[Rfam]
RNA sequence: GUCUGAUAAAGGCAAACUUCACCGAAAGGGAAGGACGCAAAGCCAUGAGCCUAACCGCUGCUACGCAGCGUAUGGUCGUCAGGUUGCCGGG
Numbered sequence: 001g002u003c004u005g006a007u008a009a010a011g012g013c014a015a016a017c018u019u020c021a022c023c024g025a026a027a028g029g030g031a032a033g034g035a036c037g038c039a040a041a042g043c044c045a046u047g048a049g050c051c052u053a054a055c056c057g058c059u060g061c062u063a064c065g066c067a068g069c070g071u072a073u074g075g076u077c078g079u080c081a082g083g084u085u086g087c088c089g090g091g
Base pairs, nucleotide, nucleotide: 012038013037017033018032019031020030022029023028041085042084043083044082046081047080048079049076050075051074056070057069058068059067060066061065
Record summary: c-di-GMP-I riboswitch aptamer: a 91-nucleotide RNA sequence from Ectobacillus ponti. A search with the family's covariance model found it, with a score of 73 bits. Rfam's curators write: GEMM was predicted in a large-scale screen for bacterial structured RNA regulatory elements. Its Rfam clan is "c-di-GMP_I riboswitch clan".